A member of the RNA family "Potassium channel RNA editing signal" from Ceutorhynchus assimilis, 114 nucleotides long. Rfam classes the family as a cis-regulatory element. This family represents a group of sequences related to the human potassium channel Kv1.1 hairpin element which directs the efficient modification of an adenosine to inosine by an adenosine deaminase acting on RNA (ADAR). A search with the family's covariance model found it, with a score of 93 bits. Taxonomically the source falls in Ceutorhynchus (Eukaryota, Dicondylia, Coleoptera, Cucujiformia). Gene Ontology term of the family: adenosine to inosine editing.
RNA sequence: GUAGGUUACGGUGACAUGGCUCCGAAAACGUAUGCGGGAAUGUUUGUCGGAGCUUUGUGUGCCCUAGCAGGAGUGCUCACUAUUGCUCUACCAGUUCCAGUGAUUGUUUCCAAU
Dot-bracket structure: ((.((..((((..((..((.(...............((.(........((...........))..........).))................).))..))..))))..)).))